[Rfam]
A member of the RNA family "Small nucleolar RNA snoR138" from Papaver nudicaule, 149 nucleotides long. Rfam classes the family as an H/ACA-box small nucleolar RNA. A reference for the family is Chen and Wu (2009), "Mining small RNA sequencing data: a new approach to identify small nucleolar RNAs in Arabidopsis", Nucleic Acids Res. Rfam links the family to the GO terms RNA processing and nucleolus. Taxonomically the source falls in Papaver (Eukaryota, Streptophyta, Streptophytina, Mesangiospermae). Rfam 15.1 lists 308 matches to the family in 168 species.
RNA sequence: UUUGCCUUCGAAUAACUGGAUGUGGAAAUUUGAGACCACAUUCGGUUCAUACAAGGCAUAUAAUAAAGAUACGAGGGGGAAUUGUGUUGGAAUUGAUUUCUUCACUUUUCCAUUUUCUCUUGAAUCAAUCUUAAUGGAGAGGAAUGAUU
Numbered sequence: 001u002u003u004g005c006c007u008u009c010g011a012a013u014a015a016c017u018g019g020a021u022g023u024g025g026a027a028a029u030u031u032g033a034g035a036c037c038a039c040a041u042u043c044g045g046u047u048c049a050u051a052c053a054a055g056g057c058a059u060a061u062a063a064u065a066a067a068g069a070u071a072c073g074a075g076g077g078g079g080a081a082u083u084g085u086g087u088u089g090g091a092a093u094u095g096a097u098u099u100c101u102u103c104a105c106u107u108u109u110c111c112a113u114u115u116u117c118u119c120u121u122g123a124a125u126c127a128a129u130c131u132u133a134a135u136g137g138a139g140a141g142g143a144a145u146g147a148u149u
Stems, first nucleotide, its partner, number of pairs: 003058005014047008023038003075119003080114003084111001090108003094104002126146002129143004